The record is a 591-nucleotide part of an RNA from Guillardia theta, which matches "Eukaryotic large subunit ribosomal RNA" in Rfam.
[Rfam]
RNA sequence: GACAGGUCGUCGUGAUAGUAAUUCAGCUCAGUACGAGAGGAACCGUUGAUUCAGAUAAUUGGUCUUGGCACUUGGCUGAGAAGCUAUCGGUGCGGAGCUACCAUCUGUCGGAUUAUGGCUGAACGCCUCUAAGCCAGAAGCCUUGCUAGAAACGACGAUAGACAAUCUCUCCUGGUUUCGAUGUGAUAUCCACAGGGCAUAGUGUAAGAGCAAUGGGGGUAAACCCUUUUGCUCUUGUGCCGAAUGUACCCGUGUCAAUCAGAGUAACGGUGAGCGUGGGAGUGAGUGAUGACUCGUUGUGUAUAUCUUACUUCUUUUCGUUAAGAAUGGAGAGGACACAUCGUGUUUUCAGUAUAUCUCUACGAGGAUAAACGGGAGGGUACAAAGGGGUUGCUUUUUCCCUUUUUUUUUUUUAUCCCGCAGCCUCCUUCUUCCGUAUAACCCUCCGCGCGGAAAUCUAUCACGCUGUAGGUGGUUGCGCGUGAUGCCGGUGCAACUCCUCUUUCUUUUGUUAUAGGUGGAGUUGUCUUUACAUCCUCAGUUUUGUUUUUCCUGAAGAGAAAGAAAAGGAAAGGGCGGGCCUGGAGAGGG
Numbered sequence: 001g002a003c004a005g006g007u008c009g010u011c012g013u014g015a016u017a018g019u020a021a022u023u024c025a026g027c028u029c030a031g032u033a034c035g036a037g038a039g040g041a042a043c044c045g046u047u048g049a050u051u052c053a054g055a056u057a058a059u060u061g062g063u064c065u066u067g068g069c070a071c072u073u074g075g076c077u078g079a080g081a082a083g084c085u086a087u088c089g090g091u092g093c094g095g096a097g098c099u100a101c102c103a104u105c106u107g108u109c110g111g112a113u114u115a116u117g118g119c120u121g122a123a124c125g126c127c128u129c130u131a132a133g134c135c136a137g138a139a140g141c142c143u144u145g146c147u148a149g150a151a152a153c154g155a156c157g158a159u160a161g162a163c164a165a166u167c168u169c170u171c172c173u174g175g176u177u178u179c180g181a182u183g184u185g186a187u188a189u190c191c192a193c194a195g196g197g198c199a200u201a202g203u204g205u206a207a208g209a210g211c212a213a214u215g216g217g218g219g220u221a222a223a224c225c226c227u228u229u230u231g232c233u234c235u236u237g238u239g240c241c242g243a244a245u246g247u248a249c250c251c252g253u254g255u256c257a258a259u260c261a262g263a264g265u266a267a268c269g270g271u272g273a274g275c276g277u278g279g280g281a282g283u284g285a286g287u288g289a290u291g292a293c294u295c296g297u298u299g300u301g302u303a304u305a306u307c308u309u310a311c312u313u314c315u316u317u318u319c320g321u322u323a324a325g326a327a328u329g330g331a332g333a334g335g336a337c338a339c340a341u342c343g344u345g346u347u348u349u350c351a352g353u354a355u356a357u358c359u360c361u362a363c364g365a366g367g368a369u370a371a372a373c374g375g376g377a378g379g380g381u382a383c384a385a386a387g388g389g390g391u392u393g394c395u396u397u398u399u400c401c402c403u404u405u406u407u408u409u410u411u412u413u414u415a416u417c418c419c420g421c422a423g424c425c426u427c428c429u430u431c432u433u434c435c436g437u438a439u440a441a442c443c444c445u446c447c448g449c450g451c452g453g454a455a456a457u458c459u460a461u462c463a464c465g466c467u468g469u470a471g472g473u474g475g476u477u478g479c480g481c482g483u484g485a486u487g488c489c490g491g492u493g494c495a496a497c498u499c500c501u502c503u504u505u506c507u508u509u510u511g512u513u514a515u516a517g518g519u520g521g522a523g524u525u526g527u528c529u530u531u532a533c534a535u536c537c538u539c540a541g542u543u544u545u546g547u548u549u550u551u552c553c554u555g556a557a558g559a560g561a562a563a564g565a566a567a568a569g570g571a572a573a574g575g576g577c578g579g580g581c582c583u584g585g586a587g588a589g590g591g
Stems, first nucleotide, its partner, number of pairs: 006159008016148004021051001023049005052107005060100003068093004073086005110142002116136005168588005174582005